[Rfam]
RNA sequence: GAAAUUCCUCACGCCCGUGGGGAAGAACAGGUGGAAUGGGGGCCAUCUGUUCAAGAAAAAAGGAGGUC
Number, nucleotide and partner (000 for none) at each position: 001g000002a000003a000004a000005u024006u023007c022008c021009u020010c019011a018012c017013g000014c000015c000016c000017g012018u011019g010020g009021g008022g007023a006024a005025g052026a051027a050028c049029a048030g047031g046032u045033g044034g043035a000036a000037u000038g000039g000040g000041g000042g000043c034044c033045a032046u031047c030048u029049g028050u027051u026052c025053a000054a000055g000056a000057a000058a000059a000060a000061a000062g000063g000064a000065g000066g000067u000068c000
Overview
The record is a 68-nucleotide sequence from Chlorobium limicola, which matches "Chlorobi-1 RNA" in Rfam. The organism belongs to Chlorobium limicola, within Bacteria. It is annotated as a small RNA. It is one of the family's seed sequences. The base pairs follow the family's consensus structure, which is taken from published work.